Annotation: This 71-nucleotide RNA from Vidua macroura belongs to the Rfam family "mir-34 microRNA precursor family".

RNA sequence: GGUUUGCAGGCAGUGCAGUUAGCUGAUUGUCUCCAUAAUUCCACAAUCACUAACCUCACUGCCAUCGAAAC
Number, nucleotide and partner (000 for none) at each position: 001g000002g000003u069004u068005u067006g066007c000008a000009g063010g062011c000012a060013g059014u058015g057016c000017a000018g054019u053020u052021a051022g050023c000024u049025g048026a047027u046028u045029g044030u043031c000032u000033c000034c000035a000036u000037a000038a000039u000040u000041c000042c000043a030044c029045a028046a027047u026048c025049a024050c022051u021052a020053a019054c018055c000056u000057c015058a014059c013060u012061g000062c010063c009064a000065u000066c006067g005068a004069a003070a000071c000
Human mir-34a was discovered computationally and later experimentally verified. The mature sequence is excised from the 5' arm of the hairpin. Gene Ontology terms of the family: RISC complex and miRNA-mediated post-transcriptional gene silencing. On this family, see Dostie et al., RNA 2003: "Numerous microRNPs in neuronal cells containing novel microRNAs". It scores 66 bits against the family's covariance model.